[Rfam]
This 126-nucleotide sequence from Aotus nancymaae belongs to the Rfam family "U4atac minor spliceosomal RNA". The base pairs follow the family's consensus structure, which is taken from published work. Rfam classes the family as a spliceosomal small nuclear RNA. A reference for the family is Lorkovic et al. (2005), "Evolutionary conservation of minor U12-type spliceosome between plants and humans", RNA.
RNA sequence: ACCAUCUUUUUCUCGGGGUUGUGCUACGUCCAAUGAGCGCACAGUGAGGGCAGUACUGCUAGCGCCUACACGACACACCUGCCUGAGCUAAAGGUUUGCUUUUACCUUGGUGCAAUUUUCAGUAAA
Numbered sequence: 001a002c003c004a005u006c007u008u009u010u011u012c013u014c015g016g017g018g019u020u021g022u023g024c025u026a027c028g029u030c031c032a033a034u035g036a037g038c039g040c041a042c043a044g045u046g047a048g049g050g051c052a053g054u055a056c057u058g059c060u061a062g063c064g065c066c067u068a069c070a071c072g073a074c075a076c077a078c079c080u081g082c083c084u085g086a087g088c089u090a091a092a093g094g095u096u097u098g099c100u101u102u103u104a105c106c107u108u109g110g111u112g113c114a115a116u117u118u119u120c121a122g123u124a125a126a
Base pairs, nucleotide, nucleotide: 006018007017008016009015021059022058023057026054027053028051029050030049031048037045038044081113082112084110086108089104090103091102092101093100094099